[Rfam]
RNA: EGFOA RNA
RNA sequence: UUCUUCCCAGAAGUAACCGUCCCUGUCGCAAUUGCGAGGUAGAAUAAAGUGUGCUGAAUGGUAAAAGCACUCCGUAAAGCAGGACCUGGGGGAGUUGAAGUGCGAGU
Numbered sequence: 001u002u003c004u005u006c007c008c009a010g011a012a013g014u015a016a017c018c019g020u021c022c023c024u025g026u027c028g029c030a031a032u033u034g035c036g037a038g039g040u041a042g043a044a045u046a047a048a049g050u051g052u053g054c055u056g057a058a059u060g061g062u063a064a065a066a067g068c069a070c071u072c073c074g075u076a077a078a079g080c081a082g083g084a085c086c087u088g089g090g091g092g093a094g095u096u097g098a099a100g101u102g103c104g105a106g107u
Stems, first nucleotide, its partner, number of pairs: 006090005019085002022083004026037004043107001045105001049101002053068003069095005